Rfam assigns this 92-nucleotide RNA sequence from Serinicoccus chungangensis to the family "TPP riboswitch aptamer (THI element)". Lineage of the source: Bacteria > Actinomycetes > Micrococcales > Ornithinimicrobiaceae > Serinicoccus. The family's consensus secondary structure is taken from published work. Rfam describes the family as follows. Vitamin B(1) in its active form thiamin pyrophosphate (TPP) is an essential coenzyme that is synthesised by coupling of pyrimidine and thiazole moieties in bacteria.

RNA sequence: CGGUGGACGCGGGGUGCCGCUGUGCGGCUGAGAUCACACCCGUCGAACCUGAUCUAGCUCGUACUAGCGAAGGGAACGUCAGAUGUCGACGA
Numbered sequence: 001c002g003g004u005g006g007a008c009g010c011g012g013g014g015u016g017c018c019g020c021u022g023u024g025c026g027g028c029u030g031a032g033a034u035c036a037c038a039c040c041c042g043u044c045g046a047a048c049c050u051g052a053u054c055u056a057g058c059u060c061g062u063a064c065u066a067g068c069g070a071a072g073g074g075a076a077c078g079u080c081a082g083a084u085g086u087c088g089a090c091g092a
Base pairs, nucleotide, nucleotide: 006080007079008078009077010042011041012040013039015036016028017027018026019025020024048073049072050071054067055066056065057064
The match comes from Rfam's covariance-model search (64 bits).